[Rfam]
RNA sequence: UCCCAGGUGCACGGGCGUUACGCAUAUCAGUGAGGAUUCGUCCGAGAUUGCGUUUUUGCUAGUUGAAAACUAUAGUAAGUUAUCUUCAGCCUUUCCUGAUAUCAUACCAGGGAUCGAUUCUAACGUGCUUUCUAGACUAUGACCACUCCUAUUUGGCUACGGCUGGGUAGGGAAUUUUUGGCACACACUACCUCUAUGAGG
Dot-bracket structure: ...................(((((.(((.....(((....)))..))))))))...............................(((.((((..((................................................................))..)))).))).............................
Rfam assigns this 201-nucleotide RNA from Truncatella angustata to the family "U4 spliceosomal RNA". U4 small nuclear RNA (U4 snRNA) is a component of the major U2-dependent spliceosome. The base pairs follow the family's consensus structure, which is taken from published work. For this family Rfam cites "The uRNA database" (Zwieb, Nucleic Acids Res, 1997).